[Rfam]
RNA sequence: GGUUGGGUUUUUAGACAAUAAAAGCUUUCAAGAUUUCAGUCUCUUUGGGUCAGGAGAC
Number, nucleotide and partner (000 for none) at each position: 001g000002g000003u031004u030005g029006g026007g025008u024009u023010u022011u021012u000013a000014g000015a000016c000017a000018a000019u000020a000021a011022a010023a009024g008025c007026u006027u000028u000029c005030a004031a003032g000033a000034u000035u000036u000037c000038a000039g058040u057041c056042u055043c054044u053045u052046u000047g000048g000049g000050u000051c000052a045053g044054g043055a042056g041057a040058c039

Overview:
Na+ riboswitch aptamer (DUF1646): a 58-nucleotide RNA from Lactobacillus pasteurii. Gene Ontology terms of the family: sodium ion binding and regulation of gene expression. Rfam's curators put it in the seed alignment. The base pairs follow the family's consensus structure, which is taken from published work.